This 294-nucleotide RNA from Cetraspora pellucida belongs to the Rfam family "Nuclear RNase P".
[Rfam]
RNA sequence: CGAACGAAAAGCUUGUGUAAGGGGAAAACAUACGGACAGUGAGGUUUCCUUGCCGUCAUCUUGACCCUUGGGAAGGUCUGAGAAAAACUAUAAAAAUCUCUAGCUGAGAUUCCUGUGAGAAUGGGGGCGAAUAAACAGAAACGAUACCCUCCUGGAUUAUAAUAUGAAGUCUUUUGACGGAUUGGCAUGGUCCAUGGAGUGUUUGAACGUGGUUCGCUAGUGGUAGCUCUAUGGAGUACGAUACACAAGACAUCAUAUUAUGAUGUAACUCAAUUCAGACUACUCUUUCGUUCG
Numbered sequence: 001c002g003a004a005c006g007a008a009a010a011g012c013u014u015g016u017g018u019a020a021g022g023g024g025a026a027a028a029c030a031u032a033c034g035g036a037c038a039g040u041g042a043g044g045u046u047u048c049c050u051u052g053c054c055g056u057c058a059u060c061u062u063g064a065c066c067c068u069u070g071g072g073a074a075g076g077u078c079u080g081a082g083a084a085a086a087a088c089u090a091u092a093a094a095a096a097u098c099u100c101u102a103g104c105u106g107a108g109a110u111u112c113c114u115g116u117g118a119g120a121a122u123g124g125g126g127g128c129g130a131a132u133a134a135a136c137a138g139a140a141a142c143g144a145u146a147c148c149c150u151c152c153u154g155g156a157u158u159a160u161a162a163u164a165u166g167a168a169g170u171c172u173u174u175u176g177a178c179g180g181a182u183u184g185g186c187a188u189g190g191u192c193c194a195u196g197g198a199g200u201g202u203u204u205g206a207a208c209g210u211g212g213u214u215c216g217c218u219a220g221u222g223g224u225a226g227c228u229c230u231a232u233g234g235a236g237u238a239c240g241a242u243a244c245a246c247a248a249g250a251c252a253u254c255a256u257a258u259u260a261u262g263a264u265g266u267a268a269c270u271c272a273a274u275u276c277a278g279a280c281u282a283c284u285c286u287u288u289c290g291u292u293c294g
Base pairs, nucleotide, nucleotide: 001294002293003292004291007288008287009286012249013248014247015246016245017244018243020069021068022067023066024065035057036056037055039053040052041051042050043049044048078278079277080276081275082274087221088220089219090218096110097109098108099107100106111126112125113124114123115122116121127217128216129215130214131213132212145201146200147199250266251265252264253263254262255261256260